[Rfam]
RNA sequence: AUACGAUUGGGCAAUGAUGUCUGCCCCGAACCGCCUUUUGCUGAUGACGUCUACUAAUUU
Numbered sequence: 001a002u003a004c005g006a007u008u009g010g011g012c013a014a015u016g017a018u019g020u021c022u023g024c025c026c027c028g029a030a031c032c033g034c035c036u037u038u039u040g041c042u043g044a045u046g047a048c049g050u051c052u053a054c055u056a057a058u059u060u
Base pairs, nucleotide, nucleotide: 010025011024012023013022016051017050018049019048020047021046033041034040